[Rfam]
RNA sequence: UUGUCAGUGAGGUACAUCCUUACCUGUUACUCCAUUCGUGGAGUUACAGAGCAUGAUGAAUGGAGGUUCAUGAGAUAUGAUUAGUAUCUCCCUCUUGUAGGGAACUGCAACACCCUACUUGAGCCAUUCUGAU
Numbered sequence: 001u002u003g004u005c006a007g008u009g010a011g012g013u014a015c016a017u018c019c020u021u022a023c024c025u026g027u028u029a030c031u032c033c034a035u036u037c038g039u040g041g042a043g044u045u046a047c048a049g050a051g052c053a054u055g056a057u058g059a060a061u062g063g064a065g066g067u068u069c070a071u072g073a074g075a076u077a078u079g080a081u082u083a084g085u086a087u088c089u090c091c092c093u094c095u096u097g098u099a100g101g102g103a104a105c106u107g108c109a110a111c112a113c114c115c116u117a118c119u120u121g122a123g124c125c126a127u128u129c130u131g132a133u
Stems, first nucleotide, its partner, number of pairs: 024049003028046001029044005072090002075087003078083001095121001097119001100116003